A member of the RNA family "TPP riboswitch aptamer (THI element)" from Arsenicicoccus cauae, 99 nucleotides long.
[Rfam]
RNA sequence: CAGGCAGACGCGGGGUGCCUGGCCGUCGGCCGGGCUGAGAUCACACCCGUCGCACCUGAUCUAGGUCGUGCUAGCGAAGGGACGUCGUAUGACGGACGC
Numbered sequence: 001c002a003g004g005c006a007g008a009c010g011c012g013g014g015g016u017g018c019c020u021g022g023c024c025g026u027c028g029g030c031c032g033g034g035c036u037g038a039g040a041u042c043a044c045a046c047c048c049g050u051c052g053c054a055c056c057u058g059a060u061c062u063a064g065g066u067c068g069u070g071c072u073a074g075c076g077a078a079g080g081g082a083c084g085u086c087g088u089a090u091g092a093c094g095g096a097c098g099c
Stems, first nucleotide, its partner, number of pairs: 007086004011049004016043001017035007055080003061074004
NCBI's taxonomy places the organism under Bacteria, Bacillati, Actinomycetota, Actinomycetes, Arsenicicoccus. It scores 61 bits against the family's covariance model.